The family of this 67-nucleotide RNA sequence from Pueribacillus theae is "Bacillaceae-1 RNA". Rfam 15.1 lists 5,721 matches to the family in 247 species. The family's consensus secondary structure is taken from published work. It scores 54 bits against the family's covariance model. By type it is a small RNA. Lineage of the source: Bacteria > Bacillati > Bacilli > Caryophanales > Pueribacillus.
RNA sequence: UAUUCAUAAAGUUCGGCUAAAGGCAUGACGUCCUGUGAUCACGUCGAACUGACUUACUUCCUGUAAG
Numbered sequence: 001u002a003u004u005c006a007u008a009a010a011g012u013u014c015g016g017c018u019a020a021a022g023g024c025a026u027g028a029c030g031u032c033c034u035g036u037g038a039u040c041a042c043g044u045c046g047a048a049c050u051g052a053c054u055u056a057c058u059u060c061c062u063g064u065a066a067g
Stems, first nucleotide, its partner, number of pairs: 011049007025039002028036002053067005